[Rfam]
RNA sequence: UCCGGGGGAAGCUCACCGCCGAGGCCACGCACGGGGUGCGCGUCACCCACGCCCCGCCUCGGGGAAGGUCUGAGAGAAGGGCCGCCAGCGGCUCCAGCAGAGCCCCGCCCGCGAGGGGCGGGUGAGCCACCAGAAAGGGGGUGGCGCCGCGGAAUCAGGCCCAGCCUGGGCAGGAGAAGCCGGCGCCGGUUGCGGGGGGGAUCUCGCUCCCCCUCCCGCCCAGCUCGGCGGAUGCUCGUGGCCCCGCGGUGCUUUGAGACAGACUCACGGCCGGCGUCUGUUGAGUCCAAUGGGUGAGGUGGGGCACCGCCCUACAACCCAAUUCAGACUACUCUCCCCCGGA
Dot-bracket structure: ((((..(((..((((((..(((((.........(((((.....)))))........)))))........[[[[[.....((((......(((((.....)))))((((((.....))))))(((((.(..............((((((((((...........................................................................................))))))))))........).)))))))))....................))))))(((((((...))))))).......]]]]].......)))..))))
Numbered sequence: 001u002c003c004g005g006g007g008g009a010a011g012c013u014c015a016c017c018g019c020c021g022a023g024g025c026c027a028c029g030c031a032c033g034g035g036g037u038g039c040g041c042g043u044c045a046c047c048c049a050c051g052c053c054c055c056g057c058c059u060c061g062g063g064g065a066a067g068g069u070c071u072g073a074g075a076g077a078a079g080g081g082c083c084g085c086c087a088g089c090g091g092c093u094c095c096a097g098c099a100g101a102g103c104c105c106c107g108c109c110c111g112c113g114a115g116g117g118g119c120g121g122g123u124g125a126g127c128c129a130c131c132a133g134a135a136a137g138g139g140g141g142u143g144g145c146g147c148c149g150c151g152g153a154a155u156c157a158g159g160c161c162c163a164g165c166c167u168g169g170g171c172a173g174g175a176g177a178a179g180c181c182g183g184c185g186c187c188g189g190u191u192g193c194g195g196g197g198g199g200g201a202u203c204u205c206g207c208u209c210c211c212c213c214u215c216c217c218g219c220c221c222a223g224c225u226c227g228g229c230g231g232a233u234g235c236u237c238g239u240g241g242c243c244c245c246g247c248g249g250u251g252c253u254u255u256g257a258g259a260c261a262g263a264c265u266c267a268c269g270g271c272c273g274g275c276g277u278c279u280g281u282u283g284a285g286u287c288c289a290a291u292g293g294g295u296g297a298g299g300u301g302g303g304g305c306a307c308c309g310c311c312c313u314a315c316a317a318c319c320c321a322a323u324u325c326a327g328a329c330u331a332c333u334c335u336c337c338c339c340c341g342g343a
Stems, first nucleotide, its partner, number of pairs: 001343004007337003012298006020061005034048005070327005080272004090104005105121006122268005128262001143253010299315007

The record is a 343-nucleotide RNA from Strix occidentalis, which matches "Nuclear RNase P" in Rfam. Rfam describes the family as follows. Ribonuclease P (RNase P) is a ubiquitous endoribonuclease, found in archaea, bacteria and eukarya as well as chloroplasts and mitochondria. The family has 116 seed sequences and 3,848 matches in Rfam 15.1. Lineage of the source: Eukaryota > Teleostomi > Dipnotetrapodomorpha > Amniota > Strix occidentalis. The match comes from Rfam's covariance-model search (164 bits).